[Rfam]
RNA: Eukaryotic large subunit ribosomal RNA, nucleotides 428 to 735
RNA sequence: CGAUUGGGACCUUUUCGAUUCCAAGAAGUGCCGCCGGUUUGCCAUCGAUCCCUUUGCCUUCUCUCUCUCACCAGGUUUAGGCUUUGGUUUCUCGAUGUAUUUCCGGUUCAUCUUUUUGGAGAGGUCAGCAUCAGCUACUCGGAAUUGAUUUCGUUCAAAGAAGGUAGGUCCCUCGUGGACCCUUAUAUCUUUGUUCUUUCCUUUUCCUUGUGGCUGAGGAGUGUUCUUGUUUCCGAGCUCCACUUUCGAGUACUCGGUUUCUGUGAUGCUGGCUUAAUCGGUUCCAACCGACCCGUCUUGAAACACGG
Numbered sequence: 001c002g003a004u005u006g007g008g009a010c011c012u013u014u015u016c017g018a019u020u021c022c023a024a025g026a027a028g029u030g031c032c033g034c035c036g037g038u039u040u041g042c043c044a045u046c047g048a049u050c051c052c053u054u055u056g057c058c059u060u061c062u063c064u065c066u067c068u069c070a071c072c073a074g075g076u077u078u079a080g081g082c083u084u085u086g087g088u089u090u091c092u093c094g095a096u097g098u099a100u101u102u103c104c105g106g107u108u109c110a111u112c113u114u115u116u117u118g119g120a121g122a123g124g125u126c127a128g129c130a131u132c133a134g135c136u137a138c139u140c141g142g143a144a145u146u147g148a149u150u151u152c153g154u155u156c157a158a159a160g161a162a163g164g165u166a167g168g169u170c171c172c173u174c175g176u177g178g179a180c181c182c183u184u185a186u187a188u189c190u191u192u193g194u195u196c197u198u199u200c201c202u203u204u205u206c207c208u209u210g211u212g213g214c215u216g217a218g219g220a221g222u223g224u225u226c227u228u229g230u231u232u233c234c235g236a237g238c239u240c241c242a243c244u245u246u247c248g249a250g251u252a253c254u255c256g257g258u259u260u261c262u263g264u265g266a267u268g269c270u271g272g273c274u275u276a277a278u279c280g281g282u283u284c285c286a287a288c289c290g291a292c293c294c295g296u297c298u299u300g301a302a303a304c305a306c307g308g
Stems, first nucleotide, its partner, number of pairs: 001290002004287008020120009125272009293308004